Annotation:
Shown here is an 87-nucleotide sequence, a member of the family "c-di-GMP-II-GAG riboswitch aptamer". For this family Rfam cites "Bioinformatic analysis of riboswitch structures uncovers variant classes with altered ligand specificity" (Weinberg et al., Proc Natl Acad Sci U S A, 2017). The family's consensus secondary structure is taken from published work.

RNA sequence: UACCUGACGGGAGGUUAUGACGCGCGUGUCCACGCACCGGUCACCUGGACCGCGUCGAGCCACUGGUGAGACCGACCCGCCCACGUA
Numbered sequence: 001u002a003c004c005u006g007a008c009g010g011g012a013g014g015u016u017a018u019g020a021c022g023c024g025c026g027u028g029u030c031c032a033c034g035c036a037c038c039g040g041u042c043a044c045c046u047g048g049a050c051c052g053c054g055u056c057g058a059g060c061c062a063c064u065g066g067u068g069a070g071a072c073c074g075a076c077c078c079g080c081c082c083a084c085g086u087a
Base pairs, nucleotide, nucleotide: 001087002086003085005083006082008079009078010077011076013061014060015059022055023054024053025052026051028050029049030048039073040072041069042068043067044066045065